[Rfam]
RNA sequence: UUUUUUGCAGGAAUCAACCAUGUGGACAAAUGAGAAAAUACCGUUUGUCUACAGAAGGCAGCAAUCCUACAUAAAUAUGGAGGACUCUGACUUAAGAUAGGUAAGUUAGAUCAUUCCCCUUCACACACU
Numbered sequence: 001u002u003u004u005u006u007g008c009a010g011g012a013a014u015c016a017a018c019c020a021u022g023u024g025g026a027c028a029a030a031u032g033a034g035a036a037a038a039u040a041c042c043g044u045u046u047g048u049c050u051a052c053a054g055a056a057g058g059c060a061g062c063a064a065u066c067c068u069a070c071a072u073a074a075a076u077a078u079g080g081a082g083g084a085c086u087c088u089g090a091c092u093u094a095a096g097a098u099a100g101g102u103a104a105g106u107u108a109g110a111u112c113a114u115u116c117c118c119c120u121u122c123a124c125a126c127a128c129u
Base pairs, nucleotide, nucleotide: 005061006060007059008058021053022052023051024050025049026048027047032044034042079122080121081120082119083118089107090106091105092104093103094102
Background: Rfam assigns this 129-nucleotide RNA sequence from Castor canadensis to the family "Small Cajal body specific RNA 3". Rfam 15.1 lists 642 matches to the family in 535 species. A reference for the family is Darzacq et al. (2002), "Cajal body-specific small nuclear RNAs: a novel class of 2'-O-methylation and pseudouridylation guide RNAs", EMBO J. scaRNAs are a specific class of small nuclear RNAs which localise to the Cajal bodies and guide the modification of RNA polymerase II transcribed spliceosomal RNAs U1, U2, U4, U5 and U12.